[Rfam]
RNA sequence: GGCUGGUCCAAAGAUAAUGACUUAUCUCAACUGAUUGUUCAUAGCUGCAGAUCGAACUCCUUGUUUGACGCUUUCCUCCUUUCUCACUACUGCACUUGAUUAGUCUAAA
Numbered sequence: 001g002g003c004u005g006g007u008c009c010a011a012a013g014a015u016a017a018u019g020a021c022u023u024a025u026c027u028c029a030a031c032u033g034a035u036u037g038u039u040c041a042u043a044g045c046u047g048c049a050g051a052u053c054g055a056a057c058u059c060c061u062u063g064u065u066u067g068a069c070g071c072u073u074u075c076c077u078c079c080u081u082u083c084u085c086a087c088u089a090c091u092g093c094a095c096u097u098g099a100u101u102a103g104u105c106u107a108a109a
Base pairs, nucleotide, nucleotide: 001105002104003103004102005101006100007099008098010097011096015092016088018086019085020084040067041066